A member of the RNA family "U7 small nuclear RNA" from Coregonus sp. 'balchen', 54 nucleotides long. Animal histone pre-mRNAs are spliced by a different mechanism than nuclear pre-mRNAs and self-splicing introns. This processing involves the U7 snRNP, which contains only one RNA species: U7. A search with the family's covariance model found it, with a score of 34 bits.
RNA sequence: GAACAUUUCUCUUUUAGUAUUUCUCCAGUAGGUUUCCUCAAGGAGAAAGUCCCU
Numbered sequence: 001g002a003a004c005a006u007u008u009c010u011c012u013u014u015u016a017g018u019a020u021u022u023c024u025c026c027a028g029u030a031g032g033u034u035u036c037c038u039c040a041a042g043g044a045g046a047a048a049g050u051c052c053c054u
Stems, first nucleotide, its partner, number of pairs: 031051005037045003